[Rfam]
RNA sequence: UCCUGUGCGUCGCACAGGGCUGAAAUUUAGCUGAUGCAAAGGGGUCUGCUCGUG
Numbered sequence: 001u002c003c004u005g006u007g008c009g010u011c012g013c014a015c016a017g018g019g020c021u022g023a024a025a026u027u028u029a030g031c032u033g034a035u036g037c038a039a040a041g042g043g044g045u046c047u048g049c050u051c052g053u054g
Stems, first nucleotide, its partner, number of pairs: 001019008
Record summary
The record is a 54-nucleotide RNA from Citrobacter sp. JGM124, which matches "ClpQY promoter" in Rfam. It scores 44 bits against the family's covariance model. Lineage of the source: Bacteria > Pseudomonadati > Pseudomonadota > Gammaproteobacteria > Citrobacter. For this family Rfam cites "Regulation of clpQ(+)Y(+) (hslV(+)U(+)) gene expression in Escherichia coli" (Lien et al., Open Microbiol J, 2009). The family's RNA type in Rfam is cis-regulatory element.